[Rfam]
RNA sequence: AUGAAUACAAGGGGAGAGCUUACAUAGAUUCCAUAUAGUAAUGAGUCAAACUAUGUAACGCCGAAGGAGCAAGCGAAAGCGAAUCUCUCAGGCAAACAGACUCUUGUAGGACG
Numbered sequence: 001a002u003g004a005a006u007a008c009a010a011g012g013g014g015a016g017a018g019c020u021u022a023c024a025u026a027g028a029u030u031c032c033a034u035a036u037a038g039u040a041a042u043g044a045g046u047c048a049a050a051c052u053a054u055g056u057a058a059c060g061c062c063g064a065a066g067g068a069g070c071a072a073g074c075g076a077a078a079g080c081g082a083a084u085c086u087c088u089c090a091g092g093c094a095a096a097c098a099g100a101c102u103c104u105u106g107u108a109g110g111a112c113g
Stems, first nucleotide, its partner, number of pairs: 006108008020058008060093003063089002067087003073080002